Annotation: Shown here is a 95-nucleotide RNA from Thalassobium sp. R2A62, a member of the family "Rhodo-rpoB RNA". The family's RNA type in Rfam is cis-regulatory element. The family's consensus secondary structure is taken from published work.
RNA sequence: UGGUCGGGAGGUGCCCUUUGGGACGGGCACCACGAAUUGGCCGAAACUGAUAUCCGUUCUCAGAUGAGAGAAUGCCGAGACCCACCGGCGUUCUG
Number, nucleotide and partner (000 for none) at each position: 001u043002g042003g041004u040005c039006g000007g000008g000009a000010g031011g030012u029013g028014c027015c026016c025017u000018u000019u000020g000021g000022g000023a000024c000025g016026g015027g014028c013029a012030c011031c010032a000033c000034g000035a000036a000037u000038u000039g005040g004041c003042c002043g001044a000045a000046a000047c000048u000049g000050a000051u000052a000053u000054c000055c000056g000057u000058u000059c000060u000061c000062a000063g000064a000065u000066g000067a000068g000069a094070g093071a092072a091073u090074g089075c088076c087077g086078a000079g000080a000081c000082c000083c000084a000085c000086c077087g076088g075089c074090g073091u072092u071093c070094u069095g000

Rfam's curators put it in the seed alignment.